FMN riboswitch aptamer (RFN element): a 154-nucleotide RNA sequence from Halalkalibacter hemicellulosilyticus. The RFN element is a highly conserved domain that is found frequently in the 5'-untranslated regions of prokaryotic mRNAs that encode for flavin mononucleotide (FMN) biosynthesis and transport proteins. Lineage of the source: Bacteria > Bacillati > Bacillota > Halalkalibacter > Halalkalibacter hemicellulosilyticus.

RNA sequence: AUAUUCCUUCGGGGCAGGGUGAAAAUCCCUACCGGCGGUGAUGAAAGUGAAUUAUUCACUUCUUAGUCCGUGACCCGGCUUCAUGUAUGUGAAGUCGGUGGACCUGGUGCAAAUCCGGGACCGACAGUGAAAGUCUGGAUGGGAGAAGGAGCGA
Numbered sequence: 001a002u003a004u005u006c007c008u009u010c011g012g013g014g015c016a017g018g019g020u021g022a023a024a025a026u027c028c029c030u031a032c033c034g035g036c037g038g039u040g041a042u043g044a045a046a047g048u049g050a051a052u053u054a055u056u057c058a059c060u061u062c063u064u065a066g067u068c069c070g071u072g073a074c075c076c077g078g079c080u081u082c083a084u085g086u087a088u089g090u091g092a093a094g095u096c097g098g099u100g101g102a103c104c105u106g107g108u109g110c111a112a113a114u115c116c117g118g119g120a121c122c123g124a125c126a127g128u129g130a131a132a133g134u135c136u137g138g139a140u141g142g143g144a145g146a147a148g149g150a151g152c153g154a
Base pairs, nucleotide, nucleotide: 004151005150006149007148008147009146010145017029018028019027031134032133033123034122035071036070037069038068066121067120075098076097077096078095103119104118105117106116107115125137126136127135